[Rfam]
RNA: bZIP non canonical Hac1/Xbp1 intron
RNA sequence: CCCGAAUUCGACUCGACACAAUAUCCUGCCGCGAUAUUGUGCGACCUGCCGUGUCAGUCGAUUUCGGG
Numbered sequence: 001c002c003c004g005a006a007u008u009c010g011a012c013u014c015g016a017c018a019c020a021a022u023a024u025c026c027u028g029c030c031g032c033g034a035u036a037u038u039g040u041g042c043g044a045c046c047u048g049c050c051g052u053g054u055c056a057g058u059c060g061a062u063u064u065c066g067g068g
Stems, first nucleotide, its partner, number of pairs: 001068006009060005020038006043055003